[Rfam]
RNA sequence: GCAUUAGUGAGGUACAUCCUUACCUGUUACCUUAGAAAUAAGGUUUCAGAGCAUGAUGAUUGGAUUACAUGAAUACGUGAUUAUGUUCCGUAUUUGUUAAGGGCCGCAACCCCUUAAUGAUCCUUUCUGAG
Numbered sequence: 001g002c003a004u005u006a007g008u009g010a011g012g013u014a015c016a017u018c019c020u021u022a023c024c025u026g027u028u029a030c031c032u033u034a035g036a037a038a039u040a041a042g043g044u045u046u047c048a049g050a051g052c053a054u055g056a057u058g059a060u061u062g063g064a065u066u067a068c069a070u071g072a073a074u075a076c077g078u079g080a081u082u083a084u085g086u087u088c089c090g091u092a093u094u095u096g097u098u099a100a101g102g103g104c105c106g107c108a109a110c111c112c113c114u115u116a117a118u119g120a121u122c123c124u125u126u127c128u129g130a131g
Base pairs, nucleotide, nucleotide: 024049025048026047029044030043031042032041033040075086076085078083094120095119096118097117098116099115100114101113102112
RNA: U8 small nucleolar RNA